[Rfam]
RNA sequence: UAAUUGUAGAAGGAAGACAUUGUAGAAGCGCGCUCGUCGCGACCCCUGCCAGCCCUUUUCAGGGCUGCAAUUCUACA
Numbered sequence: 001u002a003a004u005u006g007u008a009g010a011a012g013g014a015a016g017a018c019a020u021u022g023u024a025g026a027a028g029c030g031c032g033c034u035c036g037u038c039g040c041g042a043c044c045c046c047u048g049c050c051a052g053c054c055c056u057u058u059u060c061a062g063g064g065c066u067g068c069a070a071u072u073c074u075a076c077a
Stems, first nucleotide, its partner, number of pairs: 013046001016043001018041001021077007028040003050067007
A member of the RNA family "Mammalian CPEB3 ribozyme" from Parnassius apollo, 77 nucleotides long.
Taxonomically the source falls in Parnassius (Eukaryota, Panorpida, Papilionoidea, Parnassini).
The base pairs follow the family's consensus structure, which is taken from published work.
A search with the family's covariance model found it, with a score of 39 bits.